Shown here is a 135-nucleotide RNA sequence from Stegastes partitus, a member of the family "Small nucleolar RNA SNORA13". The family is grouped with related families in Rfam's "SNORA13 clan".

Nucleotides: 135
Base pairs, nucleotide, nucleotide: 002058003057004056005055006054007053011050012049014047015046016045017044018042019041020040021039022038023037024036025035070128071127072126073125075122076121078119079118084117088113089112090110091109095104
Number, partner (000 for none) and nucleotide at each position: 001000u002058g003057c004056c005055u006054u007053u008000a009000u010000g011050u012049g013000u014047u015046g016045c017044c018042c019041g020040u021039u022038c023037g024036u025035u026000g027000g028000u029000u030000u031000c032000u033000a034000c035025g036024a037023u038022g039021g040020a041019c042018g043000u044017g045016g046015u047014g048000u049012c050011a051000a052000c053007a054006a055005a056004g057003g058002c059000a060000u061000a062000c063000a064000g065000c066000a067000a068000u069000u070128c071127u072126u073125g074000g075122a076121u077000c078119g079118g080000c081000c082000u083000u084117a085000g086000c087000g088113a089112g090110g091109u092000u093000c094000c095104u096000c097000u098000u099000c100000g101000g102000u103000g104095a105000c106000c107000u108000u109091g110090u111000c112089c113088u114000a115000a116000g117084u118079u119078c120000u121076a122075u123000a124000c125073c126072a127071a128070g129000u130000a131000c132000a133000a134000u135000a
Rfam classes the family as an H/ACA-box small nucleolar RNA. Taxonomically the source falls in Stegastes (Eukaryota, Actinopteri, Eurypterygia, Ctenosquamata). Pairs were carried over by alignment from the consensus structure, which was predicted with CMfinder. From the family's description: ACA13 is a member of the H/ACA class of snoRNA that guide the sites of modification of uridines to pseudouridines.